[Rfam]
Description: The family of this 173-nucleotide RNA sequence from Robbsia andropogonis is "Manganese Mn2+ riboswitch aptamer (yybP-ykoY)". It scores 60 bits against the family's covariance model. About the family: This RNA was originally discovered in E. coli during a large scale screen and was named SraF. The family was later found to exist upstream of related families of protein genes in many bacteria, including the the yybP and ykoK genes in B. subtilis. The specific functions of these proteins are unknown, but this structured RNA element may be involved in their genetic regulation as a riboswitch. Rfam links the family to the GO term manganese ion binding.
RNA sequence: CUGCUUGUCUUUGGGGAGUAGCCGGCUUCCAUCCGGAAGCAGUUGCGUCAACAUUCUCGGUCGGCCAGACCGUGGCGCAGCUACCCUGCUUUAGGUUGGCGAGACCAUCGACACAUCGCCGCAACCGGUCGAGUGCAGCGAUGUGUCGUGGUUUAUUGCCCGACCUAGAGCGC
Numbered sequence: 001c002u003g004c005u006u007g008u009c010u011u012u013g014g015g016g017a018g019u020a021g022c023c024g025g026c027u028u029c030c031a032u033c034c035g036g037a038a039g040c041a042g043u044u045g046c047g048u049c050a051a052c053a054u055u056c057u058c059g060g061u062c063g064g065c066c067a068g069a070c071c072g073u074g075g076c077g078c079a080g081c082u083a084c085c086c087u088g089c090u091u092u093a094g095g096u097u098g099g100c101g102a103g104a105c106c107a108u109c110g111a112c113a114c115a116u117c118g119c120c121g122c123a124a125c126c127g128g129u130c131g132a133g134u135g136c137a138g139c140g141a142u143g144u145g146u147c148g149u150g151g152u153u154u155a156u157u158g159c160c161c162g163a164c165c166u167a168g169a170g171c172g173c
Base pairs, nucleotide, nucleotide: 025040026039027038041082042081043080044079045078046077047076048075049074050073058072059071060070061069062068088173089172